[Rfam]
RNA sequence: UUAAGAAAAUAGCAAACCUAUUGAAAAAUAGGGACGCAAAGCUAUGGGUCUAAGGGAUUAUAUCCUAGGACUGCCAGGUUGCCGUA
Number, nucleotide and partner (000 for none) at each position: 001u000002u000003a000004a000005g000006a000007a000008a000009a000010u000011a000012g037013c036014a000015a000016a000017c032018c031019u030020a029021u028022u027023g000024a000025a000026a000027a022028a021029u020030a019031g018032g017033g000034a000035c000036g013037c012038a000039a000040a080041g079042c078043u077044a000045u076046g075047g074048g071049u070050c069051u000052a000053a000054g000055g065056g064057a063058u062059u000060a000061u000062a058063u057064c056065c055066u000067a000068g000069g050070a049071c048072u000073g000074c047075c046076a045077g043078g042079u041080u040081g000082c000083c000084g000085u000086a000
RNA: c-di-GMP-I riboswitch aptamer